[Rfam]
RNA: Plastid-clpP 5UTR RNA
RNA sequence: AAUUCUGAUCGUAAGAACAAAAGAGAAGCAGAUCUAUUCUAUAACCGAUAAGUAACACUACGCAAUGGG
Numbered sequence: 001a002a003u004u005c006u007g008a009u010c011g012u013a014a015g016a017a018c019a020a021a022a023g024a025g026a027a028g029c030a031g032a033u034c035u036a037u038u039c040u041a042u043a044a045c046c047g048a049u050a051a052g053u054a055a056c057a058c059u060a061c062g063c064a065a066u067g068g069g
Stems, first nucleotide, its partner, number of pairs: 003023002006019002009016002045068002052061003